Annotation: MIR8008 microRNA precursor family: a 55-nucleotide sequence from Solanum commersonii. The source organism's lineage runs through Eukaryota, Streptophytina, Tracheophyta, Gunneridae and Solanum.

RNA sequence: AUUUCCAGAAAAGCGAUCGACAGUGUCAUUUAGUCCGUUGUUUUUCUGGGAUUUU
Numbered sequence: 001a002u003u004u005c006c007a008g009a010a011a012a013g014c015g016a017u018c019g020a021c022a023g024u025g026u027c028a029u030u031u032a033g034u035c036c037g038u039u040g041u042u043u044u045u046c047u048g049g050g051a052u053u054u055u
Stems, first nucleotide, its partner, number of pairs: 001053001003051015019035003